The family of this 224-nucleotide sequence from Anaerostipes sp. 992a is "T-box leader". About the family: Uncharged tRNA acts as the effector for transcription antitermination of genes in the T-box leader family. Lineage of the source: Bacteria > Bacillati > Bacillota > Clostridia > Anaerostipes. Rfam classes the family as a cis-regulatory leader. The match comes from Rfam's covariance-model search (116 bits).
[Rfam]
Nucleotides: 224
Base pairs, nucleotide, nucleotide: 007106008105015101016100017099018098026090027089028088029087031085038078039077048075049074050073051072052071053070054069055068109135110134111133113131114130115129137149138148139147165185166184167183168182169181170180171179191221192220193219194218202217203216204215205214206213
Number, partner (000 for none) and nucleotide at each position: 001000g002000a003000a004000a005000a006000a007106g008105u009000g010000a011000u012000g013000a014000u015101c016100g017099g018098a019000a020000g021000g022000a023000g024000u025000a026090c027089u028088g029087u030000a031085u032000u033000u034000g035000g036000a037000a038078c039077c040000a041000u042000c043000a044000g045000a046000g047000a048075g049074g050073a051072u052071u053070u054069g055068u056000c057000a058000u059000u060000g061000g062000c063000u064000g065000u066000a067000a068055g069054c070053a071052g072051a073050u074049c075048u076000u077039g078038g079000g080000a081000a082000a083000g084000a085031a086000c087029a088028u089027g090026g091000g092000a093000a094000u095000g096000c097000a098018u099017c100016c101015g102000u103000g104000a105008a106007c107000u108000g109135a110134u111133u112000g113131a114130g115129c116000g117000a118000a119000a120000a121000g122000a123000a124000g125000a126000g127000u128000a129115g130114c131113u132000g133111a134110a135109u136000c137149c138148g139147u140000a141000a142000a143000g144000c145000a146000g147139g148138c149137g150000u151000u152000a153000a154000c155000u156000g157000u158000g159000u160000g161000a162000g163000u164000g165185a166184g167183a168182a169181u170180g171179c172000c173000a174000u175000u176000u177000u178000g179171g180170c181169a182168u183167u184166u185165u186000a187000a188000u189000u190000a191221a192220g193219a194218g195000u196000g197000g198000a199000a200000c201000c202217g203216c204215g205214g206213a207000u208000a209000g210000a211000a212000c213206u214205u215204c216203g217202u218194c219193u220192c221191u222000u223000u224000u